This 347-nucleotide sequence from Candidozyma auris belongs to the Rfam family "Nuclear RNase P". The source organism's lineage runs through Eukaryota, Opisthokonta, Pichiomycetes, Metschnikowiaceae and Candidozyma auris. The family's consensus secondary structure is taken from published work.

[Rfam]
RNA sequence: CUCGCAGCAAGCCGCAAGUACCCGUCUACAAAACAGGUUCAAGCCUCGCGCGCGAGCCUGGGACACCAAUGCGGGUGGGAAAUUCGGUGGUUCUCCCCAUCCCGCUUUCCCUUCCAAGGGAAAGUGAACGUUUUGCUCCUGAGAGCUUCCUGGGCGUAGAAAGUUACGCCGGGCGUCGCCAUCAGAAACUUCGUCUCCAAGCAGCGCUUCGCUGGCUUGUGGGCAUGGGAGGCGGCGCGGAUGGUUGGUCUUCUGUCCGUUGGCGGGACCUUGUUCUGCCCUUGGAUGGAAAGGCUGUUGAGUGCAAUUUGCGGCCCCUGGCACCCGAUACCGAUCAAUGCUGCGAG
Numbered sequence: 001c002u003c004g005c006a007g008c009a010a011g012c013c014g015c016a017a018g019u020a021c022c023c024g025u026c027u028a029c030a031a032a033a034c035a036g037g038u039u040c041a042a043g044c045c046u047c048g049c050g051c052g053c054g055a056g057c058c059u060g061g062g063a064c065a066c067c068a069a070u071g072c073g074g075g076u077g078g079g080a081a082a083u084u085c086g087g088u089g090g091u092u093c094u095c096c097c098c099a100u101c102c103c104g105c106u107u108u109c110c111c112u113u114c115c116a117a118g119g120g121a122a123a124g125u126g127a128a129c130g131u132u133u134u135g136c137u138c139c140u141g142a143g144a145g146c147u148u149c150c151u152g153g154g155c156g157u158a159g160a161a162a163g164u165u166a167c168g169c170c171g172g173g174c175g176u177c178g179c180c181a182u183c184a185g186a187a188a189c190u191u192c193g194u195c196u197c198c199a200a201g202c203a204g205c206g207c208u209u210c211g212c213u214g215g216c217u218u219g220u221g222g223g224c225a226u227g228g229g230a231g232g233c234g235g236c237g238c239g240g241a242u243g244g245u246u247g248g249u250c251u252u253c254u255g256u257c258c259g260u261u262g263g264c265g266g267g268a269c270c271u272u273g274u275u276c277u278g279c280c281c282u283u284g285g286a287u288g289g290a291a292a293g294g295c296u297g298u299u300g301a302g303u304g305c306a307a308u309u310u311g312c313g314g315c316c317c318c319u320g321g322c323a324c325c326c327g328a329u330a331c332c333g334a335u336c337a338a339u340g341c342u343g344c345g346a347g
Base pairs, nucleotide, nucleotide: 001347002346003345004344007341008340009339013314017310018309020076021075022074023073024072035059036058037057038056039055040054085333086332087331088330089329099242100241101240102239135146136145137144138143153170154169155168156167157166158165173238174237175236176235177234178233179232195223196222316321